The family of this 548-nucleotide part of an RNA from Stieleria marina is "Bacterial small subunit ribosomal RNA".
The match comes from Rfam's covariance-model search (1500 bits).
[Rfam]
RNA sequence: AAAUUGAAGGGUUUGAUCCUGGCUCAGAAUGAACGUUGGCGGCGUGGAUUAGGCAUGCAAGUCGUACGAGAAGAAACCUUAGCUUGCUUUGGUUUCGGACAGUGGCGAAAGGGAGAGUAACGUGUGGUUACUUGCCCUCGAGUUCGGGAUAGUAGCGGGAAACUGCUAGUAAUACCGAAUAAUAUCUUUGGAUCAAAGGUGUGAUUCCGCUCGAGGAUAGGACCGCAUACUAUUAGCUUGUUGGUGAGGUAAUGGCUCACCAAGGCCGCGAUGGUUACCGGGUGUGAGAGCAUGGCCCGGCUCACUGGGACUGAGACACUGCCCAGACACCUACGGGUGGCUGCAGUCGAGAAUCUUUGGCAAUGGGCGAAAGCCUGACCAAGCGACGCCGCGUGCGGGAUGAAGGCCCUCGGGUUGUAAACCGCUGUCAGUUUGGAGGAAUGGAGUGUGAAGAGCACUUCUUGACCGAUAUUCAGAGGAAGGACGGGCUAAGUUCGUGCCAGCAGCCGCGGUAAGACGAACCGUCCAAACGUUAUUCGGUAUCACUG
Numbered sequence: 001a002a003a004u005u006g007a008a009g010g011g012u013u014u015g016a017u018c019c020u021g022g023c024u025c026a027g028a029a030u031g032a033a034c035g036u037u038g039g040c041g042g043c044g045u046g047g048a049u050u051a052g053g054c055a056u057g058c059a060a061g062u063c064g065u066a067c068g069a070g071a072a073g074a075a076a077c078c079u080u081a082g083c084u085u086g087c088u089u090u091g092g093u094u095u096c097g098g099a100c101a102g103u104g105g106c107g108a109a110a111g112g113g114a115g116a117g118u119a120a121c122g123u124g125u126g127g128u129u130a131c132u133u134g135c136c137c138u139c140g141a142g143u144u145c146g147g148g149a150u151a152g153u154a155g156c157g158g159g160a161a162a163c164u165g166c167u168a169g170u171a172a173u174a175c176c177g178a179a180u181a182a183u184a185u186c187u188u189u190g191g192a193u194c195a196a197a198g199g200u201g202u203g204a205u206u207c208c209g210c211u212c213g214a215g216g217a218u219a220g221g222a223c224c225g226c227a228u229a230c231u232a233u234u235a236g237c238u239u240g241u242u243g244g245u246g247a248g249g250u251a252a253u254g255g256c257u258c259a260c261c262a263a264g265g266c267c268g269c270g271a272u273g274g275u276u277a278c279c280g281g282g283u284g285u286g287a288g289a290g291c292a293u294g295g296c297c298c299g300g301c302u303c304a305c306u307g308g309g310a311c312u313g314a315g316a317c318a319c320u321g322c323c324c325a326g327a328c329a330c331c332u333a334c335g336g337g338u339g340g341c342u343g344c345a346g347u348c349g350a351g352a353a354u355c356u357u358u359g360g361c362a363a364u365g366g367g368c369g370a371a372a373g374c375c376u377g378a379c380c381a382a383g384c385g386a387c388g389c390c391g392c393g394u395g396c397g398g399g400a401u402g403a404a405g406g407c408c409c410u411c412g413g414g415u416u417g418u419a420a421a422c423c424g425c426u427g428u429c430a431g432u433u434u435g436g437a438g439g440a441a442u443g444g445a446g447u448g449u450g451a452a453g454a455g456c457a458c459u460u461c462u463u464g465a466c467c468g469a470u471a472u473u474c475a476g477a478g479g480a481a482g483g484a485c486g487g488g489c490u491a492a493g494u495u496c497g498u499g500c501c502a503g504c505a506g507c508c509g510c511g512g513u514a515a516g517a518c519g520a521a522c523c524g525u526c527c528a529a530a531c532g533u534u535a536u537u538c539g540g541u542a543u544c545a546c547u548g
Base pairs, nucleotide, nucleotide: 009025010024011023012022013021027538028537029536030535032534033533034532035531036530037529039392040391041390042389043388044387045385046384052348053347054346056345057344058343061106062105063104066103067102076093077092078091081088082087113303114302115301122228123227124226125225126224127223128222129221131220132219136216137215138214139213140212141211142210144178145177146176147175153168154167155166156165157164158163184193185192186191198208199207229275230274231273236266237265238264241263242262243261244260245259246258247257248256278300279299280298281297282293283292284291285290305326306325307324308323309322328339329338330337331336356382358381359380360379364377365376366375367374368373395425396424397423398422405416406415407414408413429479431474434471435470439466445459446458447457482527483526484525485524486523493522494521495520496519497518503510504509